[Rfam]
Notes: The family of this 57-nucleotide RNA sequence is "Glutamine-II riboswitch aptamer". The sequence is in the family's curated seed alignment. Its family is annotated with glutamine binding in the Gene Ontology. The family's consensus secondary structure is taken from published work.
RNA sequence: GUCCGUUCAUCCAUUUUUAUGGACGCAUGAAAACCUAGGCAUGGAACGGGGCUUAGG
Numbered sequence: 001g002u003c004c005g006u007u008c009a010u011c012c013a014u015u016u017u018u019a020u021g022g023a024c025g026c027a028u029g030a031a032a033a034c035c036u037a038g039g040c041a042u043g044g045a046a047c048g049g050g051g052c053u054u055a056g057g
Stems, first nucleotide, its partner, number of pairs: 004048005010023005034057006040050001